[Rfam]
RNA: Y RNA
RNA sequence: GACUGGUCCCAGUGCAGUGUUGUUGCCAACUGAUCACAGCCAGUUACAGAUUUCUUUGUUCCUUCUCCAAUCCCCCUGCUUCAUUUGACUGGCCUAAA
Numbered sequence: 001g002a003c004u005g006g007u008c009c010c011a012g013u014g015c016a017g018u019g020u021u022g023u024u025g026c027c028a029a030c031u032g033a034u035c036a037c038a039g040c041c042a043g044u045u046a047c048a049g050a051u052u053u054c055u056u057u058g059u060u061c062c063u064u065c066u067c068c069a070a071u072c073c074c075c076c077u078g079c080u081u082c083a084u085u086u087g088a089c090u091g092g093c094c095u096a097a098a
Base pairs, nucleotide, nucleotide: 001094003092004091005090006089007088008087011085014082016077017076019074022072028060029059030058032056033055